Rfam assigns this 174-nucleotide RNA from Jaculus jaculus to the family "Small nucleolar RNA SNORA61".
The family's RNA type in Rfam is H/ACA-box small nucleolar RNA.
ACA61 is a member of the H/ACA class of snoRNA that guide the sites of modification of uridines to pseudouridines.
Rfam links the family to the GO terms nucleolus and RNA processing.
[Rfam]
RNA sequence: ACCCUCCUGUUCCCUUCCUAUUGGAUUCUUGACACUGGUCUUGGUGAUUGUGAAGGAGGAAGGGUGACACCGAAGCUGGCCUCAGCCAUGCAGUCUGGUGUACAUACUGCACGUGGGACUUCUCAGGCUUUUGGCUAAGAUCAAAUGUAGGAUGUAGGCUAGGUUCAAAAAGGG
Numbered sequence: 001a002c003c004c005u006c007c008u009g010u011u012c013c014c015u016u017c018c019u020a021u022u023g024g025a026u027u028c029u030u031g032a033c034a035c036u037g038g039u040c041u042u043g044g045u046g047a048u049u050g051u052g053a054a055g056g057a058g059g060a061a062g063g064g065u066g067a068c069a070c071c072g073a074a075g076c077u078g079g080c081c082u083c084a085g086c087c088a089u090g091c092a093g094u095c096u097g098g099u100g101u102a103c104a105u106a107c108u109g110c111a112c113g114u115g116g117g118a119c120u121u122c123u124c125a126g127g128c129u130u131u132u133g134g135c136u137a138a139g140a141u142c143a144a145a146u147g148u149a150g151g152a153u154g155u156a157g158g159c160u161a162g163g164u165u166c167a168a169a170a171a172g173g174g
Base pairs, nucleotide, nucleotide: 003059004058005057006056007055019047020045021044022043024040025039026038028037076162077161078160079159080158081157082156089152091150